RNA sequence: UAGAUUCCAUACGACUGGCGGAUAAGUGAGAGCACUCACAGGGAGUAUGGAGAUGUAUCGAAGCCGACCGCCUGGGCAACCAUU
Number, nucleotide and partner (000 for none) at each position: 001u000002a000003g054004a000005u052006u051007c050008c049009a048010u047011a046012c045013g000014a000015c042016u041017g072018g071019c070020g069021g068022a000023u000024a000025a000026g000027u038028g037029a036030g035031a000032g000033c000034a000035c030036u029037c028038a027039c000040a000041g016042g015043g000044a000045g012046u011047a010048u009049g008050g007051a006052g005053a000054u003055g000056u000057a000058u000059c000060g000061a000062a000063g077064c076065c075066g000067a000068c021069c020070g019071c018072c017073u000074g000075g065076g064077c063078a000079a000080c000081c000082a000083u000084u000